A member of the RNA family "Trans-activating crRNA" from Streptococcus hyointestinalis, 95 nucleotides long.
Pairs were carried over by alignment from the consensus structure.
For this family Rfam cites "A Programmable Dual-RNA-Guided DNA Endonuclease in Adaptive Bacterial Immunity" (Jinek et al., Science, 2012).
The source organism's lineage runs through Bacteria, Bacillati, Lactobacillales, Streptococcaceae and Streptococcus.
About the family: RNA-guided Streptococcus pyogenes Cas9 (SpCas9) is a sequence-specific DNA endonuclease, the Trans-activating CRISPR RNA form an hybrid with the crRNA (crRNA/tracrRNA).
Rfam classes the family as a CRISPR RNA.
[Rfam]
RNA sequence: UGUUGGAACUAUUCGAAACAACACAGCGAGUUAAAAUAAGGCUUAGUCCGUAAACAACUUUGCAAAAAAGUAGGCACCGAAUCGGUGCCUUUUUU
Numbered sequence: 001u002g003u004u005g006g007a008a009c010u011a012u013u014c015g016a017a018a019c020a021a022c023a024c025a026g027c028g029a030g031u032u033a034a035a036a037u038a039a040g041g042c043u044u045a046g047u048c049c050g051u052a053a054a055c056a057a058c059u060u061u062g063c064a065a066a067a068a069a070g071u072a073g074g075c076a077c078c079g080a081a082u083c084g085g086u087g088c089c090u091u092u093u094u095u
Base pairs, nucleotide, nucleotide: 001036003034004033005032009026010025012023040049041048057071059069060068073089074088075087076086077085078084079083